[Rfam]
The family of this 69-nucleotide RNA from Musca domestica is "Small nucleolar RNA R442". For this family Rfam cites "Genome-wide analyses of two families of snoRNA genes from Drosophila melanogaster, demonstrating the extensive utilization of introns for coding of snoRNAs" (Huang et al., RNA, 2005). Its family is annotated with nucleolus and RNA processing in the Gene Ontology. Taxonomically the source falls in Musca (Eukaryota, Arthropoda, Mandibulata, Muscoidea).
RNA sequence: UACAAGCCUGUUUUAGGUUUUGUAACAAGCCGAUGGGGCGUGAUAUUGCUUGUCAUAGUUACUCUGAUU
Numbered sequence: 001u002a003c004a005a006g007c008c009u010g011u012u013u014u015a016g017g018u019u020u021u022g023u024a025a026c027a028a029g030c031c032g033a034u035g036g037g038g039c040g041u042g043a044u045a046u047u048g049c050u051u052g053u054c055a056u057a058g059u060u061a062c063u064c065u066g067a068u069u
Stems, first nucleotide, its partner, number of pairs: 006039003040056005